[Rfam]
RNA sequence: CUUCUUUUGCUAAGGUGCAUCUAGUGCAGAUAGUGGAUUAGAUCGGCACCUACUGCCCUAAGUGCUCCUUCUGGCAUGAGAG
Numbered sequence: 001c002u003u004c005u006u007u008u009g010c011u012a013a014g015g016u017g018c019a020u021c022u023a024g025u026g027c028a029g030a031u032a033g034u035g036g037a038u039u040a041g042a043u044c045g046g047c048a049c050c051u052a053c054u055g056c057c058c059u060a061a062g063u064g065c066u067c068c069u070u071c072u073g074g075c076a077u078g079a080g081a082g
Stems, first nucleotide, its partner, number of pairs: 005078001007076001010073001013069003017065004022060003026056002029054001031052003